Overview
This 214-nucleotide RNA sequence from Actinomadura barringtoniae belongs to the Rfam family "Actinobacteria sRNA Ms_IGR-5".
[Rfam]
RNA sequence: ACGCGCGAAAGGAGGUGGUCCAAGAAAAUGGUUGAUUCUGGGACUCGCGAGGUGACUGUCCGCUAGUCGCCGUACCCGCCUCGGAGCCGCCCUCGGGCGGCGCCGCCGGUUGAACGGUGACCGGCGAAAACCAGGCAGUUACCCGGUCCCCGGACCGAUGGACCCGUCCUGUCCGUCGCCCACCAGAGGUGGGAAGGUCCGGGGAUCGUUUAUA
Numbered sequence: 001a002c003g004c005g006c007g008a009a010a011g012g013a014g015g016u017g018g019u020c021c022a023a024g025a026a027a028a029u030g031g032u033u034g035a036u037u038c039u040g041g042g043a044c045u046c047g048c049g050a051g052g053u054g055a056c057u058g059u060c061c062g063c064u065a066g067u068c069g070c071c072g073u074a075c076c077c078g079c080c081u082c083g084g085a086g087c088c089g090c091c092c093u094c095g096g097g098c099g100g101c102g103c104c105g106c107c108g109g110u111u112g113a114a115c116g117g118u119g120a121c122c123g124g125c126g127a128a129a130a131c132c133a134g135g136c137a138g139u140u141a142c143c144c145g146g147u148c149c150c151c152g153g154a155c156c157g158a159u160g161g162a163c164c165c166g167u168c169c170u171g172u173c174c175g176u177c178g179c180c181c182a183c184c185a186g187a188g189g190u191g192g193g194a195a196g197g198u199c200c201g202g203g204g205a206u207c208g209u210u211u212a213u214a
Base pairs, nucleotide, nucleotide: 014060015059016058017057018056019055061126062125063124064123066121067120069118070117071116072115144208145207146206147205148204149203150202151201152200153199154198155197156196158176159175160174161173162172163171

Record summary:
Rfam classes the family as a small RNA. A search with the family's covariance model found it, with a score of 106 bits. NCBI's taxonomy places the organism under Bacteria, Actinomycetes, Streptosporangiales, Thermomonosporaceae, Actinomadura. A reference for the family is Li et al. (2013), "Identification of small RNAs in Mycobacterium smegmatis using heterologous Hfq", RNA.